[Rfam]
RNA sequence: UCUAAAACUCGAGAUAUGGGCUGAACACUAAACAGUAUCUAGGCUACAGAACAGAUUUGGACUUCUCCAUUGUUAUUAUAAUUUGAACUUGAAAAUGGCCUUUUUAAAUCUUGGACUCCACAUUAAAGUUGUAGGCCUAUAUCUUACCUUUCCAUC
Numbered sequence: 001u002c003u004a005a006a007a008c009u010c011g012a013g014a015u016a017u018g019g020g021c022u023g024a025a026c027a028c029u030a031a032a033c034a035g036u037a038u039c040u041a042g043g044c045u046a047c048a049g050a051a052c053a054g055a056u057u058u059g060g061a062c063u064u065c066u067c068c069a070u071u072g073u074u075a076u077u078a079u080a081a082u083u084u085g086a087a088c089u090u091g092a093a094a095a096u097g098g099c100c101u102u103u104u105u106a107a108a109u110c111u112u113g114g115a116c117u118c119c120a121c122a123u124u125a126a127a128g129u130u131g132u133a134g135g136c137c138u139a140u141a142u143c144u145u146a147c148c149u150u151u152c153c154a155u156c
Base pairs, nucleotide, nucleotide: 003154006151007150009146011145012144013143014142015141016140017139018138019137020136021134022133023132025130027129028128029127035123036122042118043117045115048112049111051109054105055104059100060099062098063097072088073087074086